RNA sequence: GAGGAGGUGAGGAUACUUUCCCCAAAUGAUCGAUUCUGAUUCCAUCUGUGCUAAUCAGCUCGAAAGAGCCAAGCCAGGAAAACUGAUCCUU
Dot-bracket structure: (((((.................................................................................)))))
Source information:
Rfam assigns this 91-nucleotide RNA sequence from Physcomitrium patens to the family "Small nucleolar RNA Z103". Gene Ontology terms of the family: nucleolus and RNA processing. Rfam classes the family as a C/D-box small nucleolar RNA.